RNA: Vertebrate telomerase RNA
RNA sequence: AGUGUCGGGUGGGGAGGCCCCUCGGUCACUAACCCUAAUGGCGCCCGCGCUCCCCGCGCCCGCCCGCUGUUUUACUCGCUGACUUUCAGCGGGCGAGGGGAGCGGGGAGGGAGGGAGGGAGCGGGGAGGGAGGAAGGGGUUCCGCUGUUAAAAAACGUCAGCGAGGGGGUCUCCUUACCCCGACCCGCCCUGGGGUCCCCUUUUAUCCCCCCUCGCCCAUCUCCCGCAGCCGGGGAUGCUCCCGCGCCGCCGCCCCGCACGGAGGCCGCGGUCGGCCGGCCCAGCGCCACUGCCGCCGCGAAGAGCUCGUCUCUGUCAGCCUCGGCGGCGGCCGGGAGCCGAGGGGCGGCCCCCCCACCAUCACCCCUGCCCCGGGCAGCCGGGGGGCCCCAGCAGAGCAAAACGGGAGCGGCGCCGCCGGGCUGAGCAGCCGCGGCUCCCUCAGCCGUGGGGUGCGCGGCCGGCGCCGCCCCGACACCU
Numbered sequence: 001a002g003u004g005u006c007g008g009g010u011g012g013g014g015a016g017g018c019c020c021c022u023c024g025g026u027c028a029c030u031a032a033c034c035c036u037a038a039u040g041g042c043g044c045c046c047g048c049g050c051u052c053c054c055c056g057c058g059c060c061c062g063c064c065c066g067c068u069g070u071u072u073u074a075c076u077c078g079c080u081g082a083c084u085u086u087c088a089g090c091g092g093g094c095g096a097g098g099g100g101a102g103c104g105g106g107g108a109g110g111g112a113g114g115g116a117g118g119g120a121g122c123g124g125g126g127a128g129g130g131a132g133g134a135a136g137g138g139g140u141u142c143c144g145c146u147g148u149u150a151a152a153a154a155a156c157g158u159c160a161g162c163g164a165g166g167g168g169g170u171c172u173c174c175u176u177a178c179c180c181c182g183a184c185c186c187g188c189c190c191u192g193g194g195g196u197c198c199c200c201u202u203u204u205a206u207c208c209c210c211c212c213u214c215g216c217c218c219a220u221c222u223c224c225c226g227c228a229g230c231c232g233g234g235g236a237u238g239c240u241c242c243c244g245c246g247c248c249g250c251c252g253c254c255c256c257g258c259a260c261g262g263a264g265g266c267c268g269c270g271g272u273c274g275g276c277c278g279g280c281c282c283a284g285c286g287c288c289a290c291u292g293c294c295g296c297c298g299c300g301a302a303g304a305g306c307u308c309g310u311c312u313c314u315g316u317c318a319g320c321c322u323c324g325g326c327g328g329c330g331g332c333c334g335g336g337a338g339c340c341g342a343g344g345g346g347c348g349g350c351c352c353c354c355c356c357a358c359c360a361u362c363a364c365c366c367c368u369g370c371c372c373c374g375g376g377c378a379g380c381c382g383g384g385g386g387g388c389c390c391c392a393g394c395a396g397a398g399c400a401a402a403a404c405g406g407g408a409g410c411g412g413c414g415c416c417g418c419c420g421g422g423c424u425g426a427g428c429a430g431c432c433g434c435g436g437c438u439c440c441c442u443c444a445g446c447c448g449u450g451g452g453g454u455g456c457g458c459g460g461c462c463g464g465c466g467c468c469g470c471c472c473c474g475a476c477a478c479c480u
Base pairs, nucleotide, nucleotide: 004184005183006182007180008179009178010177011176012175013174014173015172016171017170019169020168021167022166023165049103050102051101052100053099061095062094063093064092065091066090067089068088069087078162079161080160081159082158083157084155085154086153190393191392192391193390194389195388196387234351235350237348238347239346240345241344246332247331248330249329250328251327252326255325256324257323267300268299269298270297271296273295274294275293276292278288279287280286302314303313304312305311407472409470410469411468412467413466414465415464416463431460432459433458434457435456438453439452440451441450